[Rfam]
RNA sequence: GCCGGGCGCAGUGGCGUGCGCCUGUAACCCAAGCUACUGGGAGGCUGAGGCUGGCGGAUUGCUUGAGCUCGGGGGUUCUGAGCUGCAGCGGUCUAUGUCGAUCGGGUGUCCGCGCUAAGUUCGGUAUCGAUAUGGUGCUCCUGGGGGAGCCCGGGACCACCAGGUCGCCUAAGGAGGGGUGCACCGGCCCAGGUCGGAAACGGAGCAGGUCAAAUCCCCCGUGCCGCUCAGUAGCGGGAUCGCGCCUGUGAAUAGACGCUGCAGCUCAGCCUGAGCAAGAUAGUAGAACCCAGUCUUUU
Numbered sequence: 001g002c003c004g005g006g007c008g009c010a011g012u013g014g015c016g017u018g019c020g021c022c023u024g025u026a027a028c029c030c031a032a033g034c035u036a037c038u039g040g041g042a043g044g045c046u047g048a049g050g051c052u053g054g055c056g057g058a059u060u061g062c063u064u065g066a067g068c069u070c071g072g073g074g075g076u077u078c079u080g081a082g083c084u085g086c087a088g089c090g091g092u093c094u095a096u097g098u099c100g101a102u103c104g105g106g107u108g109u110c111c112g113c114g115c116u117a118a119g120u121u122c123g124g125u126a127u128c129g130a131u132a133u134g135g136u137g138c139u140c141c142u143g144g145g146g147g148a149g150c151c152c153g154g155g156a157c158c159a160c161c162a163g164g165u166c167g168c169c170u171a172a173g174g175a176g177g178g179g180u181g182c183a184c185c186g187g188c189c190c191a192g193g194u195c196g197g198a199a200a201c202g203g204a205g206c207a208g209g210u211c212a213a214a215u216c217c218c219c220c221g222u223g224c225c226g227c228u229c230a231g232u233a234g235c236g237g238g239a240u241c242g243c244g245c246c247u248g249u250g251a252a253u254a255g256a257c258g259c260u261g262c263a264g265c266u267c268a269g270c271c272u273g274a275g276c277a278a279g280a281u282a283g284u285a286g287a288a289c290c291c292a293g294u295c296u297u298u299u
Stems, first nucleotide, its partner, number of pairs: 001045003004023007029041002047297008059286005067276007078269013092256005098250001103248007110238002113236005119229001122226006128167004133162005139156007168174002176219004186211004194203003
Metazoan signal recognition particle RNA: a 299-nucleotide RNA sequence from Anguilla anguilla. The base pairs follow the family's consensus structure, which is taken from published work. On this family, see Wild et al., Curr Opin Struct Biol 2002: "Towards the structure of the mammalian signal recognition particle". It scores 284 bits against the family's covariance model. From the family's description: The signal recognition particle (SRP) is a universally conserved ribonucleoprotein. It is involved in the co-translational targeting of proteins to membranes. The eukaryotic SRP consists of a 300-nucleotide 7S RNA and six proteins: SRPs 72, 68, 54, 19, 14, and 9. Archaeal SRP consists of a 7S RNA and homologues of the eukaryotic SRP19 and SRP54 proteins. Taxonomically the source falls in Anguilla (Eukaryota, Opisthokonta, Euteleostomi, Anguillidae). By type it is a non-coding RNA gene.